[Rfam]
RNA sequence: AUGGGAUGAUAAAUUCCACUUCAUUGAUCUGGUUUGUUUCUGAAUUUCAUGUUUUCACUGGAAGUUCUGACCAU
Numbered sequence: 001a002u003g004g005g006a007u008g009a010u011a012a013a014u015u016c017c018a019c020u021u022c023a024u025u026g027a028u029c030u031g032g033u034u035u036g037u038u039u040c041u042g043a044a045u046u047u048c049a050u051g052u053u054u055u056c057a058c059u060g061g062a063a064g065u066u067c068u069g070a071c072c073a074u
Stems, first nucleotide, its partner, number of pairs: 001074004